[Rfam]
Shown here is a 174-nucleotide RNA from Marinilactibacillus sp. 15R, a member of the family "Group II catalytic intron D1-D4-3". The match comes from Rfam's covariance-model search (138 bits). Pairs were carried over by alignment from the consensus structure. From the family's description: Group II introns are found in rRNA, tRNA and mRNA of organelles in fungi, plants and protists, and also in mRNA in bacteria.
RNA sequence: UCCAUCGUGAGGUGGAAUCUAAAGGAAGCUGGAGGCAAACACUCGCACUGACGAACAGAACCCUUAUAUGAAGGCUGAAGAGGGACGGAUGAGUCUGCCUAACAAGACAAAGUCCAAUACUGCACGAAUCCCAUACAGUAAAUGAGGCAGUGACAUGAGUGGAAGGUUAUGACU
Numbered sequence: 001u002c003c004a005u006c007g008u009g010a011g012g013u014g015g016a017a018u019c020u021a022a023a024g025g026a027a028g029c030u031g032g033a034g035g036c037a038a039a040c041a042c043u044c045g046c047a048c049u050g051a052c053g054a055a056c057a058g059a060a061c062c063c064u065u066a067u068a069u070g071a072a073g074g075c076u077g078a079a080g081a082g083g084g085a086c087g088g089a090u091g092a093g094u095c096u097g098c099c100u101a102a103c104a105a106g107a108c109a110a111a112g113u114c115c116a117a118u119a120c121u122g123c124a125c126g127a128a129u130c131c132c133a134u135a136c137a138g139u140a141a142a143u144g145a146g147g148c149a150g151u152g153a154c155a156u157g158a159g160u161g162g163a164a165g166g167u168u169a170u171g172a173c174u
Stems, first nucleotide, its partner, number of pairs: 001016006028174001030172001032170001035167002040161006046152005062147006074139003080134001082132004087115004093108004
Taxonomically the source falls in Marinilactibacillus (Bacteria, Bacillati, Bacillota, Carnobacteriaceae).